[Rfam]
Nucleotides: 096
Base pairs, nucleotide, nucleotide: 002095003094005092006091007090008089009088010087
Number, partner (000 for none) and nucleotide at each position: 001000a002095a003094u004000u005092g006091g007090c008089a009088a010087g011000a012000a013000u014000g015000a016000u017000g018000a019000a020000u021000c022000a023000a024000u025000u026000a027000g028000a029000u030000g031000u032000g033000u034000g035000a036000a037000u038000g039000g040000a041000a042000u043000u044000a045000a046000u047000c048000c049000a050000u051000u052000a053000u054000g055000a056000a057000c058000u059000c060000a061000a062000c063000u064000u065000g066000u067000g068000a069000g070000g071000c072000a073000u074000a075000u076000u077000a078000a079000u080000u081000g082000u083000c084000u085000g086000a087010c088009u089008u090007g091006c092005c093000u094003a095002u096000a
A member of the RNA family "Small nucleolar RNA Z266" from Manihot esculenta, 96 nucleotides long. On this family, see Chen et al., Nucleic Acids Res 2003: "The high diversity of snoRNAs in plants: identification and comparative study of 120 snoRNA genes from Oryza sativa". NCBI's taxonomy places the organism under Eukaryota, Embryophyta, Tracheophyta, Crotonoideae, Manihot. The family's consensus secondary structure was predicted with PFOLD. It is annotated as a C/D-box small nucleolar RNA. Gene Ontology terms of the family: RNA processing and nucleolus.